[Rfam]
RNA sequence: CUGGUGUCCCCUCCGAGUCGUCACCACGGGCAGGAGCGGGGGACCCACCUCCACCGGCUGGCGCCACGACACGGCGUUGGCCUAGGGGUGAAGUCCAUCGCGUGAAGGUCGCGCUAUGGACCGGGCAGCCCAGCCCGAACCCGACAGCUCACCUCGCAGGCGUACGGGAAGGAACGC
Numbered sequence: 001c002u003g004g005u006g007u008c009c010c011c012u013c014c015g016a017g018u019c020g021u022c023a024c025c026a027c028g029g030g031c032a033g034g035a036g037c038g039g040g041g042g043a044c045c046c047a048c049c050u051c052c053a054c055c056g057g058c059u060g061g062c063g064c065c066a067c068g069a070c071a072c073g074g075c076g077u078u079g080g081c082c083u084a085g086g087g088g089u090g091a092a093g094u095c096c097a098u099c100g101c102g103u104g105a106a107g108g109u110c111g112c113g114c115u116a117u118g119g120a121c122c123g124g125g126c127a128g129c130c131c132a133g134c135c136c137g138a139a140c141c142c143g144a145c146a147g148c149u150c151a152c153c154u155c156g157c158a159g160g161c162g163u164a165c166g167g168g169a170a171g172g173a174a175c176g177c
Base pairs, nucleotide, nucleotide: 001033002032003031036157037156038155039154040153041152046085086142087141088140094120095119096118097117123136124135125134126133

This 177-nucleotide RNA sequence from Parafrankia soli belongs to the Rfam family "c-di-AMP riboswitch aptamer (ydaO/yuaA leader)".